[Rfam]
RNA sequence: CGAGUGCAGGGGCAAAGCUGCCGAAAGGCAGCGACGCAAAACCACGGGCCUAAGGGACCUUCGGGUCUACGGUCGCCGGGUCGCCAUU
Numbered sequence: 001c002g003a004g005u006g007c008a009g010g011g012g013c014a015a016a017g018c019u020g021c022c023g024a025a026a027g028g029c030a031g032c033g034a035c036g037c038a039a040a041a042c043c044a045c046g047g048g049c050c051u052a053a054g055g056g057a058c059c060u061u062c063g064g065g066u067c068u069a070c071g072g073u074c075g076c077c078g079g080g081u082c083g084c085c086a087u088u
Base pairs, nucleotide, nucleotide: 012037013036017032018031019030020029021028022027041081042080043079045078046077047076048073049072050071055067056066058064
Dot-bracket structure: ...........((...((((((....))))))...))...(((.((((((....((.(.....).))...)))..)))))).......
This 88-nucleotide RNA sequence from Limnochorda pilosa belongs to the Rfam family "c-di-GMP-I riboswitch aptamer".
GEMM was predicted in a large-scale screen for bacterial structured RNA regulatory elements.